The record is a 63-nucleotide RNA sequence from Otolemur garnettii, which matches "U7 small nuclear RNA" in Rfam. The family has 49 seed sequences and 10,439 matches in Rfam 15.1. The base pairs follow the family's consensus structure, which was predicted with PFOLD.
RNA sequence: UAGAACUUACAGCUCUUUUAGAAUUUACCUAGCAGGCCUUCCGGUCUCUACCGGAAGAUGAUA
Numbered sequence: 001u002a003g004a005a006c007u008u009a010c011a012g013c014u015c016u017u018u019u020a021g022a023a024u025u026u027a028c029c030u031a032g033c034a035g036g037c038c039u040u041c042c043g044g045u046c047u048c049u050a051c052c053g054g055a056a057g058a059u060g061a062u063a
Stems, first nucleotide, its partner, number of pairs: 038057008

The organism belongs to Otolemur, within Eukaryota.